[Rfam]
This 300-nucleotide RNA sequence from Zostera marina belongs to the Rfam family "Plant signal recognition particle RNA". The family has 63 seed sequences and 4,988 matches in Rfam 15.1.
RNA sequence: GCUGUGCUCGGUAACUUGGGCUUGUCACUAAGUGGAACAUUAAGGUAUUUGAAUAAUUUGGUAUUGAAUUCAAAUUUUACAUUAUGAGCUAGCUUUGAUUUGCCCGUUUCCAAGUUGGGCAGUGAAUGCUAUGUUUCAGGCUAACGCUUGAAUCAUAUUCUCCCUGAACUUGAGGGUAAUACGUGAGGCUGGUUUCACAGAUCAGCGAUUACCUCUCACUCUCAACGGUGGAAGGAUUACAAGUCAUUUGCUCAUAUUGUCAAUUACCCUUGGAAUCUACCAAAUUCAACAAAUAUUUUU
Numbered sequence: 001g002c003u004g005u006g007c008u009c010g011g012u013a014a015c016u017u018g019g020g021c022u023u024g025u026c027a028c029u030a031a032g033u034g035g036a037a038c039a040u041u042a043a044g045g046u047a048u049u050u051g052a053a054u055a056a057u058u059u060g061g062u063a064u065u066g067a068a069u070u071c072a073a074a075u076u077u078u079a080c081a082u083u084a085u086g087a088g089c090u091a092g093c094u095u096u097g098a099u100u101u102g103c104c105c106g107u108u109u110c111c112a113a114g115u116u117g118g119g120c121a122g123u124g125a126a127u128g129c130u131a132u133g134u135u136u137c138a139g140g141c142u143a144a145c146g147c148u149u150g151a152a153u154c155a156u157a158u159u160c161u162c163c164c165u166g167a168a169c170u171u172g173a174g175g176g177u178a179a180u181a182c183g184u185g186a187g188g189c190u191g192g193u194u195u196c197a198c199a200g201a202u203c204a205g206c207g208a209u210u211a212c213c214u215c216u217c218a219c220u221c222u223c224a225a226c227g228g229u230g231g232a233a234g235g236a237u238u239a240c241a242a243g244u245c246a247u248u249u250g251c252u253c254a255u256a257u258u259g260u261c262a263a264u265u266a267c268c269c270u271u272g273g274a275a276u277c278u279a280c281c282a283a284a285u286u287c288a289a290c291a292a293a294u295a296u297u298u299u300u
Base pairs, nucleotide, nucleotide: 001038003036004023006021007020008019009018010017011016028035029034042299043298044297045296046295047294048293049292050291051290055286057284058283059282061280064279066277068276069275070274071273073271074270077262079260080259081258083256084255086253087252088251091248096246097245098244099243100242101241102240104235105234108233109232110231111230112229114226115225116224117223118222119221121220122219123218124163126161128159130157131156132155133154135152136151137150138149139148140147141146172215173214174213175212182207183206184205189200190199191198
Lineage of the source: Eukaryota > Streptophytina > Spermatophyta > Liliopsida > Zostera.